[Rfam]
RNA sequence: GUGAAGAAUCUGUAAAGCUCAGGAGGGAUAGCGCCGUCGAUGAAGAUGAUGUUGAUGAUGACAAGACAGAGCUUAAUGAGUUCACUUGCAAAUGUAACGUUUCAUUCGUUAGAUGGCGCUAUCCAUCCUGAGUUUUAUGGUUUUUUCAA
Number, nucleotide and partner (000 for none) at each position: 001g000002u000003g000004a000005a000006g000007a000008a000009u000010c140011u000012g000013u000014a000015a000016a134017g133018c132019u131020c130021a129022g128023g127024a126025g000026g124027g123028a122029u121030a120031g119032c118033g117034c116035c115036g114037u113038c112039g000040a000041u000042g000043a000044a000045g000046a000047u000048g000049a000050u000051g000052u000053u000054g000055a000056u000057g000058a000059u000060g000061a000062c000063a000064a000065g000066a000067c000068a000069g000070a000071g000072c000073u000074u000075a000076a000077u000078g000079a000080g000081u000082u000083c000084a000085c000086u000087u000088g000089c000090a000091a000092a000093u000094g000095u000096a000097a000098c000099g000100u000101u000102u000103c000104a000105u000106u000107c000108g000109u000110u000111a000112g038113a037114u036115g035116g034117c033118g032119c031120u030121a029122u028123c027124c026125a000126u024127c023128c022129u021130g020131a019132g018133u017134u016135u000136u000137a000138u000139g000140g010141u000142u000143u000144u000145u000146u000147c000148a000149a000
Notes: This 149-nucleotide RNA sequence from Camphora micrantha belongs to the Rfam family "MIR390 microRNA precursor family". The source organism's lineage runs through Eukaryota, Mesangiospermae, Magnoliidae, Lauraceae and Camphora. Gene Ontology terms of the family: RISC complex and miRNA-mediated post-transcriptional gene silencing. A search with the family's covariance model found it, with a score of 89 bits.